MicA sRNA: a 77-nucleotide sequence from Erwinia sp. OLSSP12. A reference for the family is Udekwu et al. (2005), "Hfq-dependent regulation of OmpA synthesis is mediated by an antisense RNA", Genes Dev. Rfam classes the family as a small RNA. Taxonomically the source falls in Erwinia (Bacteria, Pseudomonadati, Pseudomonadota, Erwiniaceae). A search with the family's covariance model found it, with a score of 80 bits.
RNA sequence: GAAAGACGCGCAUUUGUUAUCAUCAUCUCAUCCCUGUCAACAGAGAUGUUAGUUUGGCCACGAUUUCGUGGCCUUUU
Dot-bracket structure: ............................((((.(((....))).)))).......(((((((....)))))))....